[Rfam]
RNA: Small nucleolar RNA SNORD2
RNA sequence: AUGUGAAAUGAUGGCAAUCAUCUUUCAGGACUGACCUGAAAUGAAGAGAUACUCUUGCUGAUCACUU
Numbered sequence: 001a002u003g004u005g006a007a008a009u010g011a012u013g014g015c016a017a018u019c020a021u022c023u024u025u026c027a028g029g030a031c032u033g034a035c036c037u038g039a040a041a042u043g044a045a046g047a048g049a050u051a052c053u054c055u056u057g058c059u060g061a062u063c064a065c066u067u
Base pairs, nucleotide, nucleotide: 001067003065004064005063006062